[Rfam]
Shown here is a 74-nucleotide sequence from Oppiella nova, a member of the family "tRNA". A search with the family's covariance model found it, with a score of 70 bits. The source organism's lineage runs through Eukaryota, Protostomia, Ecdysozoa, Oppiidae and Oppiella.

RNA sequence: GAUUUCGUAGCUCAAUUGGUUAGAGUGUCGGUCUGAUACACCGAAGGUUGAAGGUUCAAGUCCUUCCGGAAUUA
Numbered sequence: 001g002a003u004u005u006c007g008u009a010g011c012u013c014a015a016u017u018g019g020u021u022a023g024a025g026u027g028u029c030g031g032u033c034u035g036a037u038a039c040a041c042c043g044a045a046g047g048u049u050g051a052a053g054g055u056u057c058a059a060g061u062c063c064u065u066c067c068g069g070a071a072u073u074a
Stems, first nucleotide, its partner, number of pairs: 001073007010026004028044005050066005